[Rfam]
RNA: mir-8834 microRNA precursor family
Organism: Nyctereutes procyonoides
RNA sequence: AGGAGGAACAAUUGCAGUGGCGGCGGCCAGCUCUGGAGCCCUGGAGUCAGCUCCCGCAGUAACUAGGGAGCUCUCAGUCUGCAGGGGCCUGGAUGCUCCGGGGACAG
Numbered sequence: 001a002g003g004a005g006g007a008a009c010a011a012u013u014g015c016a017g018u019g020g021c022g023g024c025g026g027c028c029a030g031c032u033c034u035g036g037a038g039c040c041c042u043g044g045a046g047u048c049a050g051c052u053c054c055c056g057c058a059g060u061a062a063c064u065a066g067g068g069a070g071c072u073c074u075c076a077g078u079c080u081g082c083a084g085g086g087g088c089c090u091g092g093a094u095g096c097u098c099c100g101g102g103g104a105c106a107g
Stems, first nucleotide, its partner, number of pairs: 002099004007094001009091002012087002019079003023075001025074002029072006037064001041059003